[Rfam]
RNA sequence: CGCUUUUACGAGGUAUCAGCACUUUUCUUUCAUUAGGGAAGGCGUGAGGAAAGUACCAAACAGCAGCCGACUUUUAAACUUUAAAUAGACAGGUCUGAGUGCCUGAACUUGCCUUUCUUUUGACUUCAUCCUCCCAGGAGCUCAACCACUUGGCGCGCCUGCUGCACUUCCAUUAAGCGAAAGAGUAAGUUUCUUACCAAC
Numbered sequence: 001c002g003c004u005u006u007u008a009c010g011a012g013g014u015a016u017c018a019g020c021a022c023u024u025u026u027c028u029u030u031c032a033u034u035a036g037g038g039a040a041g042g043c044g045u046g047a048g049g050a051a052a053g054u055a056c057c058a059a060a061c062a063g064c065a066g067c068c069g070a071c072u073u074u075u076a077a078a079c080u081u082u083a084a085a086u087a088g089a090c091a092g093g094u095c096u097g098a099g100u101g102c103c104u105g106a107a108c109u110u111g112c113c114u115u116u117c118u119u120u121u122g123a124c125u126u127c128a129u130c131c132u133c134c135c136a137g138g139a140g141c142u143c144a145a146c147c148a149c150u151u152g153g154c155g156c157g158c159c160u161g162c163u164g165c166a167c168u169u170c171c172a173u174u175a176a177g178c179g180a181a182a183g184a185g186u187a188a189g190u191u192u193c194u195u196a197c198c199a200a201c
Stems, first nucleotide, its partner, number of pairs: 002020003007015003029140003033136001035132003038127004046120004051116003069095005097112001099110001101108001150196001152194002155192001157190002162183002165179001167177003